Notes:
This 128-nucleotide RNA sequence from Carlito syrichta belongs to the Rfam family "Small nucleolar RNA SNORA48". The family's consensus secondary structure was predicted with RNAalifold. The family has 24 seed sequences and 2,109 matches in Rfam 15.1. Rfam classes the family as an H/ACA-box small nucleolar RNA. Clan: SNORA48 clan. It scores 97 bits against the family's covariance model. The source organism's lineage runs through Eukaryota, Euteleostomi, Dipnotetrapodomorpha, Mammalia and Carlito.
[Rfam]
RNA sequence: AAUCCCUGACCUGGGUAGAGUGGCAUUUGGCACCAAUUUCAUAUUAGUCAGGGACUAAGCAACUUUGUGUUUGUCCCGACUUGGCUUUUGUUCUGUGCCCAUGCCUGGUUGGUGGCUUAGACACAUGG
Numbered sequence: 001a002a003u004c005c006c007u008g009a010c011c012u013g014g015g016u017a018g019a020g021u022g023g024c025a026u027u028u029g030g031c032a033c034c035a036a037u038u039u040c041a042u043a044u045u046a047g048u049c050a051g052g053g054a055c056u057a058a059g060c061a062a063c064u065u066u067g068u069g070u071u072u073g074u075c076c077c078g079a080c081u082u083g084g085c086u087u088u089u090g091u092u093c094u095g096u097g098c099c100c101a102u103g104c105c106u107g108g109u110u111g112g113u114g115g116c117u118u119a120g121a122c123a124c125a126u127g128g
Base pairs, nucleotide, nucleotide: 001056003054004053005052006051007050008049011047012046013045014044018040019039020038022034023033026030068123069122070121071120072119073118083116085114089112093108094107095106097104098103